[Rfam]
RNA sequence: CCGUCCAUCGACCGGGACACUUGCGCGCCUUGAGGGUCCUCCCCGCUACCCUGACCGCGUGCGCCCGCCACCGGGCGGGCGCAAAGCCGACAGCCGUCGCAACCCUGGGAGCACAUCCAUG
Numbered sequence: 001c002c003g004u005c006c007a008u009c010g011a012c013c014g015g016g017a018c019a020c021u022u023g024c025g026c027g028c029c030u031u032g033a034g035g036g037u038c039c040u041c042c043c044c045g046c047u048a049c050c051c052u053g054a055c056c057g058c059g060u061g062c063g064c065c066c067g068c069c070a071c072c073g074g075g076c077g078g079g080c081g082c083a084a085a086g087c088c089g090a091c092a093g094c095c096g097u098c099g100c101a102a103c104c105c106u107g108g109g110a111g112c113a114c115a116u117c118c119a120u121g
Base pairs, nucleotide, nucleotide: 060083061082062081063080065078066077067076068075086100087099089098090097091096
The family of this 121-nucleotide sequence from Streptomyces candidus is "Streptomyces-metH RNA". By type it is a small RNA. The organism belongs to Streptomyces, within Bacteria.